[Rfam]
RNA sequence: GGCCGGAUAAGGCGUUCUCGCCGCAUCCGGCAACUGCGCACUAAUGCCUGAUGCGACGCCUGCCGCGUCUUAUCAGGCC
Numbered sequence: 001g002g003c004c005g006g007a008u009a010a011g012g013c014g015u016u017c018u019c020g021c022c023g024c025a026u027c028c029g030g031c032a033a034c035u036g037c038g039c040a041c042u043a044a045u046g047c048c049u050g051a052u053g054c055g056a057c058g059c060c061u062g063c064c065g066c067g068u069c070u071u072a073u074c075a076g077g078c079c
Stems, first nucleotide, its partner, number of pairs: 002031007011022004046078008055069005
Dot-bracket structure: .(((((((..((((....))))..)))))))..............((((((((.(((((.....))))).)))))))).
Shown here is a 79-nucleotide RNA sequence from Escherichia coli, a member of the family "Nucleoid-associated noncoding RNA 4 (CssrE)".
Rfam 15.1 lists 870 matches to the family in 32 species.
Rfam's curators write: In E. coli small RNA transcribed from repeated extragenic palindromic element (REP325) called nucleoid-associated ncRNA 4 (nRNA4) collaborates HU protein in condensing the DNA. The secondary structure but not the sequence of the RNA is important in nucleoid condensation. Also identified in Shigella as CssrE.
Rfam classes the family as a small RNA.
Rfam links the family to the GO terms bacterial nucleoid, protein binding and bacterial nucleoid DNA packaging.